[Rfam]
The record is an 81-nucleotide RNA sequence from Ewingella americana, which matches "antisense RNA of dnaA mRNA" in Rfam. The organism belongs to Ewingella americana, within Bacteria. Gene Ontology term of the family: regulation of mRNA stability.

RNA sequence: UUUGGCAUUGGCUUUACGCGCCAUGAUGCCGUUGCCGACCGCGUGCAAUAAGUGGGUUUUACCCAGACCGGUGCCGCCAUA
Dot-bracket structure: ....((..(.(.(..(((.((......))))).).).)..)).........(((.((...(((......))))))))....